[Rfam]
This 235-nucleotide RNA from Phascolarctos cinereus belongs to the Rfam family "Small nucleolar RNA SNORD17". Rfam 15.1 lists 1,015 matches to the family in 568 species. Rfam classes the family as a C/D-box small nucleolar RNA. On this family, see Huttenhofer et al., EMBO J 2001: "RNomics: an experimental approach that identifies 201 candidates for novel, small, non-messenger RNAs in mouse". The snoRNA HBI-43 belongs to the C/D family of snoRNAs, guiding 2'O-ribose methylation at position U3797 of the 28S rRNA. Pseudouridylation in position U3797 is predicted to be guided by the H/ACA snoRNA ACA48.
RNA sequence: GUGAAAUGAUGACGAGGUUUAUCCAUUCUCUGAGAUCGCUAUAUACUAACCUUCUUGUAGUGCUAGGUUCCUGUUUUGGGAACUCUGUGCUGUGUAGUCUCCAAAUGCUCAGCGGUCUUGCAGUGUUCUACUGUAGACAGUUGGCAUUGAUGAAGGAGUGUAUGUUUCAGCAGAGGUGGAACCUCAUCUGUUGGAGGUUUCCUCUUGCCAAGAUGAAUGAUGGGAGUCUGAUCAC
Numbered sequence: 001g002u003g004a005a006a007u008g009a010u011g012a013c014g015a016g017g018u019u020u021a022u023c024c025a026u027u028c029u030c031u032g033a034g035a036u037c038g039c040u041a042u043a044u045a046c047u048a049a050c051c052u053u054c055u056u057g058u059a060g061u062g063c064u065a066g067g068u069u070c071c072u073g074u075u076u077u078g079g080g081a082a083c084u085c086u087g088u089g090c091u092g093u094g095u096a097g098u099c100u101c102c103a104a105a106u107g108c109u110c111a112g113c114g115g116u117c118u119u120g121c122a123g124u125g126u127u128c129u130a131c132u133g134u135a136g137a138c139a140g141u142u143g144g145c146a147u148u149g150a151u152g153a154a155g156g157a158g159u160g161u162a163u164g165u166u167u168c169a170g171c172a173g174a175g176g177u178g179g180a181a182c183c184u185c186a187u188c189u190g191u192u193g194g195a196g197g198u199u200u201c202c203u204c205u206u207g208c209c210a211a212g213a214u215g216a217a218u219g220a221u222g223g224g225a226g227u228c229u230g231a232u233c234a235c
Stems, first nucleotide, its partner, number of pairs: 010234003017227004024219005030212002034208001038171003043167001045165002049161002051158005056152002059091005065086002067083006099149001107145002112141002115138003119135007173206004178201003182197004